[Rfam]
The family of this 228-nucleotide RNA from Streptomyces mobaraensis is "Actinobacteria sRNA Ms_IGR-5". By type it is a small RNA. The literature on the family includes a 2013 paper in RNA by Li et al., "Identification of small RNAs in Mycobacterium smegmatis using heterologous Hfq". NCBI's taxonomy places the organism under Bacteria, Bacillati, Actinomycetota, Kitasatosporales, Streptomyces.

RNA sequence: ACACGAGAAGGGAGGUGAUCGGACAGAUGGUUUCAGUCCGGACGCGUGAGGUGACUGCGGGCUAGCGCCCGUCGUCGCGCAGAGCGCAGCGCCGGGUCUUCCGGGUCCUGACGGGCCCCGGGGAAGCCGGCCCAAUUCCCAGCAGUCACCCGAUCCGUGGGCCGCCGAGUCGUCCGCUCGGCACCGCCGCGCCACGAGGCGCGACGGUCAGCGGCCCACGGAUCGCCU
Number, nucleotide and partner (000 for none) at each position: 001a000002c000003a000004c000005g000006a000007g000008a000009a000010g000011g000012g000013a000014g000015g058016u057017g056018a000019u054020c000021g000022g000023a000024c000025a000026g000027a000028u000029g000030g000031u000032u000033u000034c000035a000036g000037u000038c000039c000040g000041g000042a000043c000044g000045c000046g000047u000048g000049a000050g000051g000052u000053g000054a019055c000056u017057g016058c015059g000060g132061g131062c130063u129064a000065g127066c126067g000068c122069c121070c120071g119072u000073c000074g000075u000076c000077g000078c000079g000080c000081a000082g000083a000084g000085c000086g000087c000088a000089g000090c000091g000092c000093c000094g000095g000096g000097u000098c000099u000100u000101c000102c000103g000104g000105g000106u000107c000108c000109u000110g000111a000112c000113g000114g000115g000116c000117c000118c000119c071120g070121g069122g068123g000124a000125a000126g066127c065128c000129g063130g062131c061132c060133c000134a000135a000136u000137u000138c000139c000140c000141a000142g000143c000144a000145g000146u000147c000148a000149c000150c000151c225152g224153a223154u222155c221156c220157g219158u218159g217160g216161g215162c214163c213164g182165c181166c180167g179168a178169g177170u000171c000172g000173u000174c000175c000176g000177c169178u168179c167180g166181g165182c164183a000184c000185c000186g000187c000188c000189g000190c000191g000192c000193c000194a000195c000196g000197a000198g000199g000200c000201g000202c000203g000204a000205c000206g000207g000208u000209c000210a000211g000212c000213g163214g162215c161216c160217c159218a158219c157220g156221g155222a154223u153224c152225g151226c000227c000228u000